[Rfam]
RNA sequence: CCAGGGUGGUGGCUGGGGACAGCCCUGGAGGCAACUGG
Numbered sequence: 001c002c003a004g005g006g007u008g009g010u011g012g013c014u015g016g017g018g019a020c021a022g023c024c025c026u027g028g029a030g031g032c033a034a035c036u037g038g
Base pairs, nucleotide, nucleotide: 001028002027003026004025005024006023
RNA: Prion pseudoknot
Organism: Hylia prasina